[Rfam]
RNA sequence: AUAACAAGUUUACAGGGACAAAUUCCUCUUAGGAAAAGACGCAAGUUUACCUGCAAAACUGGCC
Numbered sequence: 001a002u003a004a005c006a007a008g009u010u011u012a013c014a015g016g017g018a019c020a021a022a023u024u025c026c027u028c029u030u031a032g033g034a035a036a037a038g039a040c041g042c043a044a045g046u047u048u049a050c051c052u053g054c055a056a057a058a059c060u061g062g063c064c
Stems, first nucleotide, its partner, number of pairs: 007060004013053004023035004037048004